[Rfam]
RNA sequence: GGGCCUCUUGGUAGUUUUCCUGGCCACCCAGGAGGUCUUGAGGAAGAGGUGGACGGCCAGAA
Number, nucleotide and partner (000 for none) at each position: 001g038002g037003g036004c035005c034006u033007c032008u031009u030010g029011g028012u000013a000014g000015u000016u000017u000018u062019c000020c060021u059022g058023g057024c056025c000026a000027c000028c011029c010030a009031g008032g007033a006034g005035g004036u003037c002038u001039u000040g000041a000042g000043g000044a000045a000046g000047a000048g000049g000050u000051g000052g000053a000054c000055g000056g024057c023058c022059a021060g020061a000062a018
This 62-nucleotide RNA from Orthoflavivirus murrayense belongs to the Rfam family "ribosomal frameshift site". The base pairs follow the family's consensus structure, which is taken from published work. It is one of the family's seed sequences. The literature on the family includes a 2009 paper in Virol J by Firth and Atkins, "A conserved predicted pseudoknot in the NS2A-encoding sequence of West Nile and Japanese encephalitis flaviviruses suggests NS1' may derive from ribosomal frameshifting". Gene Ontology term of the family: viral translational frameshifting. By type it is a frameshift element.